[Rfam]
RNA sequence: GCUGGGCGUGGUGGCGUGCGCCUGUAAUCUAGCUACUUGGAGGCCUGGUGGCGGAAACCGUCGUUUCUGGGAGUCCCGCCCUGCGUUCGCGCAUGUCGAUCGGGCGUCCGUGCUAAGCACGGCGUCGAUAUGGGGGUCAUGUCGGAAGACUUGUGGCCUCCAGGUCGUCUAAGGAGGGGCGAACCGGGCCAGGGAGGAAACUCAGCAGCCAAAAGCCCCCACGUGGUGCAGUAGCAGGAUAGCGCCUGUGAAUGGUGGGCGUCGGGCGGCCCAGUGGGCGUGCGGUGACUUCCACCUCU
Numbered sequence: 001g002c003u004g005g006g007c008g009u010g011g012u013g014g015c016g017u018g019c020g021c022c023u024g025u026a027a028u029c030u031a032g033c034u035a036c037u038u039g040g041a042g043g044c045c046u047g048g049u050g051g052c053g054g055a056a057a058c059c060g061u062c063g064u065u066u067c068u069g070g071g072a073g074u075c076c077c078g079c080c081c082u083g084c085g086u087u088c089g090c091g092c093a094u095g096u097c098g099a100u101c102g103g104g105c106g107u108c109c110g111u112g113c114u115a116a117g118c119a120c121g122g123c124g125u126c127g128a129u130a131u132g133g134g135g136g137u138c139a140u141g142u143c144g145g146a147a148g149a150c151u152u153g154u155g156g157c158c159u160c161c162a163g164g165u166c167g168u169c170u171a172a173g174g175a176g177g178g179g180c181g182a183a184c185c186g187g188g189c190c191a192g193g194g195a196g197g198a199a200a201c202u203c204a205g206c207a208g209c210c211a212a213a214a215g216c217c218c219c220c221a222c223g224u225g226g227u228g229c230a231g232u233a234g235c236a237g238g239a240u241a242g243c244g245c246c247u248g249u250g251a252a253u254g255g256u257g258g259g260c261g262u263c264g265g266g267c268g269g270c271c272c273a274g275u276g277g278g279c280g281u282g283c284g285g286u287g288a289c290u291u292c293c294a295c296c297u298c299u
Base pairs, nucleotide, nucleotide: 001044002043003042004023005022006021007020008019009018010017028041029040030039047296048295049294050293051292053290054289057286058285059284060283061282064277065276067274068273069272070271071270076269077268078267079266080265081264083262084261085260086259087258088257092254093253094252096250101248102247103246104245105244106243107242108238109237111236112235113234114233115232117229118228119227120226122224123223124222125221126167127166128165129164131162132161133160134159135158136157137156138155139154140153141150142149143148168174169173176219177218178217179216180215187210188209189208194203195202196201
The record is a 299-nucleotide RNA sequence from Mesocestoides corti, which matches "Metazoan signal recognition particle RNA" in Rfam. NCBI's taxonomy places the organism under Eukaryota, Bilateria, Neodermata, Cyclophyllidea, Mesocestoides. It scores 225 bits against the family's covariance model. The family's RNA type in Rfam is non-coding RNA gene. The base pairs follow the family's consensus structure, which is taken from published work.